[Rfam]
RNA: MIR1435 microRNA precursor family
RNA sequence: UAUCUUUGUCCUAAAUUAAACUUCUUAAAGUUUGACCAAGUUUACAGAAAAUUUACUAAUAUCUACAAUAUCAAAUAAGUAUAGUAUGAAGAUAUAUAUCAUGAUGGAUUUACUAAACUAAUUUAGAGUUGCAGAUGUUAAUAGAUUUUUCUAUAAACUCGGUCAAAAUUUAAGAAGUUUGACUUAGGACAAAGCUAG
Numbered sequence: 001u002a003u004c005u006u007u008g009u010c011c012u013a014a015a016u017u018a019a020a021c022u023u024c025u026u027a028a029a030g031u032u033u034g035a036c037c038a039a040g041u042u043u044a045c046a047g048a049a050a051a052u053u054u055a056c057u058a059a060u061a062u063c064u065a066c067a068a069u070a071u072c073a074a075a076u077a078a079g080u081a082u083a084g085u086a087u088g089a090a091g092a093u094a095u096a097u098a099u100c101a102u103g104a105u106g107g108a109u110u111u112a113c114u115a116a117a118c119u120a121a122u123u124u125a126g127a128g129u130u131g132c133a134g135a136u137g138u139u140a141a142u143a144g145a146u147u148u149u150u151c152u153a154u155a156a157a158c159u160c161g162g163u164c165a166a167a168a169u170u171u172a173a174g175a176a177g178u179u180u181g182a183c184u185u186a187g188g189a190c191a192a193a194g195c196u197a198g
Base pairs, nucleotide, nucleotide: 005193006192007191008190009189011187012186013185014184016182017181018180019179020178021177022176023175024174025173026172031167032166033165034164035163046152047151048150049149050148051147054143055142058139059138060137061136062135063134064133066131067130071126073124074123075122076121
Dot-bracket structure: ....(((((.((((.(((((((((((....(((((..........((((((..((..(((((((.((...(.((((............................................)))).)...)).)))))))..))...))))))..........)))))....))))))))))).)))).))))).....